A member of the RNA family "raiA RNA" from Alkaliphilus sp. B6464, 202 nucleotides long. A search with the family's covariance model found it, with a score of 183 bits. The base pairs follow the family's consensus structure, which is taken from published work. The organism belongs to Alkaliphilus, within Bacteria.

Nucleotides: 202
Base pairs, nucleotide, nucleotide: 001202002201004200005199006198007197008196009195012194013193014192015188016187017186018185019184028174029173030172031041033091034090035089036088037087038086039085050084051083058076059075061074062073063072064071082181103167104166105165106164107163108121109120110119111118125160126159127158128157134152135151140145
Number, partner (000 for none) and nucleotide at each position: 001202c002201a003000u004200u005199u006198a007197a008196a009195g010000g011000u012194c013193u014192g015188u016187g017186g018185u019184u020000g021000a022000a023000a024000g025000u026000c027000c028174a029173u030172g031041c032000c033091a034090g035089u036088c037087g038086c039085a040000g041031g042000c043000a044000a045000a046000a047000g048000g049000a050084c051083c052000c053000a054000c055000g056000u057000a058076a059075g060000g061074u062073a063072g064071u065000a066000a067000a068000a069000u070000u071064g072063c073062u074061a075059u076058u077000g078000a079000g080000c081000a082181u083051g084050g085039u086038g087037c088036g089035g090034c091033u092000u093000a094000g095000a096000a097000g098000u099000a100000a101000g102000a103167c104166c105165u106164g107163c108121c109120g110119a111118u112000a113000u114000a115000u116000a117000a118111a119110u120109c121108g122000a123000g124000a125160g126159g127158g128157g129000u130000a131000g132000u133000a134152g135151u136000g137000a138000a139000a140145g141000u142000a143000a144000c145140c146000c147000c148000g149000u150000a151135g152134c153000g154000a155000a156000c157128c158127c159126u160125c161000c162000a163107g164106c165105a166104g167103g168000c169000g170000a171000g172030u173029g174028u175000g176000g177000g178000g179000g180000c181082a182000a183000a184019g185018a186017c187016c188015a189000g190000g191000u192014c193013a194012g195009c196008u197007u198006u199005a200004a201002u202001g